[Rfam]
RNA: transfer-messenger RNA
RNA sequence: GGGGCCGAUUAGGAUUCGACGUUGAUUAGAAAAUGGAUCAUGGCAUGUCGAGCACCAGUUAGCUCGCUAAUCCACUGGAAAAAAUAUAAACGCCAAUAAUUCGCGUUUCAAGUUAGCAGCUUAAAGCUCUAACCGCUGCACUGGUUUUUUUCUUGGAUCAGAUGAUUCUUUCGAGUCAUAGCAGUGUCAUAUACAAGAAAUAUAUUUGUAAUAUUUUCACGAUAUGCAAAUUGAACAUAAAAGUGAAUCGCCUUAUUAAAAGCCUGUCAAUUGGCUGAUAAUAUGGUUAAAUUAAAAAAAUUGAAUACACAUGUAGAAAUGACAUUAGAAGAUUAACGGACGGGGGUUCAAAUCCCCCCGGCUCCACCA
Numbered sequence: 001g002g003g004g005c006c007g008a009u010u011a012g013g014a015u016u017c018g019a020c021g022u023u024g025a026u027u028a029g030a031a032a033a034u035g036g037a038u039c040a041u042g043g044c045a046u047g048u049c050g051a052g053c054a055c056c057a058g059u060u061a062g063c064u065c066g067c068u069a070a071u072c073c074a075c076u077g078g079a080a081a082a083a084a085u086a087u088a089a090a091c092g093c094c095a096a097u098a099a100u101u102c103g104c105g106u107u108u109c110a111a112g113u114u115a116g117c118a119g120c121u122u123a124a125a126g127c128u129c130u131a132a133c134c135g136c137u138g139c140a141c142u143g144g145u146u147u148u149u150u151u152c153u154u155g156g157a158u159c160a161g162a163u164g165a166u167u168c169u170u171u172c173g174a175g176u177c178a179u180a181g182c183a184g185u186g187u188c189a190u191a192u193a194c195a196a197g198a199a200a201u202a203u204a205u206u207u208g209u210a211a212u213a214u215u216u217u218c219a220c221g222a223u224a225u226g227c228a229a230a231u232u233g234a235a236c237a238u239a240a241a242a243g244u245g246a247a248u249c250g251c252c253u254u255a256u257u258a259a260a261a262g263c264c265u266g267u268c269a270a271u272u273g274g275c276u277g278a279u280a281a282u283a284u285g286g287u288u289a290a291a292u293u294a295a296a297a298a299a300a301u302u303g304a305a306u307a308c309a310c311a312u313g314u315a316g317a318a319a320u321g322a323c324a325u326u327a328g329a330a331g332a333u334u335a336a337c338g339g340a341c342g343g344g345g346g347u348u349c350a351a352a353u354c355c356c357c358c359c360g361g362c363u364c365c366a367c368c369a
Base pairs, nucleotide, nucleotide: 001365002364003363004362005361006360007359020338021337022336023335024334025333026332027331032326033325034324035323038322039321040320041319044313045312046311047310048309049066050065051064052063053062055078056077057076058075059074112133113132114131115130116129118128119127120126134186135185136184137183138182139181141161142160143159144158145157146156149200150199151198152197153196154195155194204231205230206229207228208227209226210225216247217246218245219244220243250287251286252285254283255282256281257280258279262275263274264273267304268303269302271298272297342358343357344356345355346354